[Rfam]
RNA sequence: AGCAAAAUGAGGUGAUCAUAUGAUCUGACGUAUCUGAUGUUGAUAUACCCAUUCAUGGUCUUCAAAGUUUUCUGAUUGCU
Dot-bracket structure: (((((......................................................................)))))
Shown here is an 80-nucleotide RNA from Paspalum vaginatum, a member of the family "Small nucleolar RNA R160". The pairing is the family consensus, mapped onto this sequence. The match comes from Rfam's covariance-model search (87 bits). For this family Rfam cites "The high diversity of snoRNAs in plants: identification and comparative study of 120 snoRNA genes from Oryza sativa" (Chen et al., Nucleic Acids Res, 2003). snoR160 is a C/D box small nucleolar RNA, which acts as a methylation guide for 25S ribosomal RNA in plants. snoR160 has been alternatively named snoZ270 in rice.